[Rfam]
RNA sequence: CAAAGGGUAGACCUCUUUUAGAAUUUGUCUAGGACGUUUUCCGGUUUUCACCGGAAGACACCCCA
Numbered sequence: 001c002a003a004a005g006g007g008u009a010g011a012c013c014u015c016u017u018u019u020a021g022a023a024u025u026u027g028u029c030u031a032g033g034a035c036g037u038u039u040u041c042c043g044g045u046u047u048u049c050a051c052c053g054g055a056a057g058a059c060a061c062c063c064c065a
Base pairs, nucleotide, nucleotide: 036061037060038057039056040055041054042053043052044051045050

A member of the RNA family "U7 small nuclear RNA" from Microcebus murinus, 65 nucleotides long. A search with the family's covariance model found it, with a score of 48 bits. The family has 49 seed sequences and 10,439 matches in Rfam 15.1. Rfam's curators write: Animal histone pre-mRNAs are spliced by a different mechanism than nuclear pre-mRNAs and self-splicing introns.